[Rfam]
RNA: Pseudomonas rpsL leader
RNA sequence: AGCCGGGGCCUGCCUUGACGGUGGGCGAGAAGCUCUUUAGACUCUCGUACCCCUAAAUUGGCGGGGCUUCGUGCCCUGCCAUUUUUCGUUUGUGUCGAAAGACAACAGUGGAGCUAGUAGA
Numbered sequence: 001a002g003c004c005g006g007g008g009c010c011u012g013c014c015u016u017g018a019c020g021g022u023g024g025g026c027g028a029g030a031a032g033c034u035c036u037u038u039a040g041a042c043u044c045u046c047g048u049a050c051c052c053c054u055a056a057a058u059u060g061g062c063g064g065g066g067c068u069u070c071g072u073g074c075c076c077u078g079c080c081a082u083u084u085u086u087c088g089u090u091u092g093u094g095u096c097g098a099a100a101g102a103c104a105a106c107a108g109u110g111g112a113g114c115u116a117g118u119a120g121a
Stems, first nucleotide, its partner, number of pairs: 004017005021052001023050001025048006033040002059081009088118001090116001092114002094103003